[Rfam]
The record is a 108-nucleotide sequence from Leersia perrieri, which matches "Small nucleolar RNA Z107/R87" in Rfam.
Pairs were carried over by alignment from the consensus structure, which was predicted with RNAfold.
RNA sequence: GAUGGCAGUGACGACUUGGUAAUAUUCAAGCUCAACAGACCAAAUUACAGGUCUAUCUCUACACAGGGAUUGAUUUGUAUGCCGAUUUUCCCGCUGAACCGAGCCAUC
Numbered sequence: 001g002a003u004g005g006c007a008g009u010g011a012c013g014a015c016u017u018g019g020u021a022a023u024a025u026u027c028a029a030g031c032u033c034a035a036c037a038g039a040c041c042a043a044a045u046u047a048c049a050g051g052u053c054u055a056u057c058u059c060u061a062c063a064c065a066g067g068g069a070u071u072g073a074u075u076u077g078u079a080u081g082c083c084g085a086u087u088u089u090c091c092c093g094c095u096g097a098a099c100c101g102a103g104c105c106a107u108c
Stems, first nucleotide, its partner, number of pairs: 001108006